[Rfam]
RNA sequence: AAGGCAGGGAUUGUGUGUAUCGGUGUAGUGCUAGAAUCAGUGCACUCUGAUCCGAAAGAGUUCCCUGCAACAUGAAAUCAAAAGGGGAAGGUGGGCAGUUGUUCUUCAUCCACCUGUUGAAAUUUCAACUAUCAUCUUCCCCAUAUUC
Numbered sequence: 001a002a003g004g005c006a007g008g009g010a011u012u013g014u015g016u017g018u019a020u021c022g023g024u025g026u027a028g029u030g031c032u033a034g035a036a037u038c039a040g041u042g043c044a045c046u047c048u049g050a051u052c053c054g055a056a057a058g059a060g061u062u063c064c065c066u067g068c069a070a071c072a073u074g075a076a077a078u079c080a081a082a083a084g085g086g087g088a089a090g091g092u093g094g095g096c097a098g099u100u101g102u103u104c105u106u107c108a109u110c111c112a113c114c115u116g117u118u119g120a121a122a123u124u125u126c127a128a129c130u131a132u133c134a135u136c137u138u139c140c141c142c143a144u145a146u147u148c
Base pairs, nucleotide, nucleotide: 004068005067006066007065008064009063010062015045016044017043018042019041020040084142085141086140087139088138089137090136091135092134093133094132098129099128100127101126
Rfam assigns this 148-nucleotide sequence from Pyrus ussuriensis x Pyrus communis to the family "small nucleolar RNA snoR135".
Pairs were carried over by alignment from the consensus structure, which was predicted with RNAalifold.
Rfam links the family to the GO terms RNA processing and nucleolus.
The organism belongs to Pyrus, within Eukaryota.
Rfam classes the family as an H/ACA-box small nucleolar RNA.